[Rfam]
The record is a 111-nucleotide RNA sequence from Clostridioides difficile, which matches "Glycine riboswitch aptamer" in Rfam.
Taxonomically the source falls in Clostridioides (Bacteria, Bacillati, Clostridia, Peptostreptococcaceae).
The match comes from Rfam's covariance-model search (50 bits).
Rfam's curators write: This family represents the bacterial glycine riboswitch.
RNA sequence: AUGAAGAGUAUGGGAGACUGCUUUAUAAAAAGCGACCGAAGGGACAAGUUUAAUCUUACUUACCCAAAAGAUUAGAUGAAAUUCUCAGGUAAAGGUGACUGUACUUGGACG
Numbered sequence: 001a002u003g004a005a006g007a008g009u010a011u012g013g014g015a016g017a018c019u020g021c022u023u024u025a026u027a028a029a030a031a032g033c034g035a036c037c038g039a040a041g042g043g044a045c046a047a048g049u050u051u052a053a054u055c056u057u058a059c060u061u062a063c064c065c066a067a068a069a070g071a072u073u074a075g076a077u078g079a080a081a082u083u084c085u086c087a088g089g090u091a092a093a094g095g096u097g098a099c100u101g102u103a104c105u106u107g108g109a110c111g
Base pairs, nucleotide, nucleotide: 006106007105008104009103010102011101012100013099020033021032022031023030035090036089037088038086039085042084043083044082048077049076050075051074052073053072054071055070056069057068